[Rfam]
RNA sequence: CAGGACAGGUUGUUUUCUCAGCUGCAUAGGUGUAAAUCCAGAGCAACUCUGCUGAGAUUCACACCAGUGUAACUGGGAAGAGAAUCUGGCCAC
Numbered sequence: 001c002a003g004g005a006c007a008g009g010u011u012g013u014u015u016u017c018u019c020a021g022c023u024g025c026a027u028a029g030g031u032g033u034a035a036a037u038c039c040a041g042a043g044c045a046a047c048u049c050u051g052c053u054g055a056g057a058u059u060c061a062c063a064c065c066a067g068u069g070u071a072a073c074u075g076g077g078a079a080g081a082g083a084a085u086c087u088g089g090c091c092a093c
Stems, first nucleotide, its partner, number of pairs: 003091002006088006013081001015079007023071003029065005035059004039054003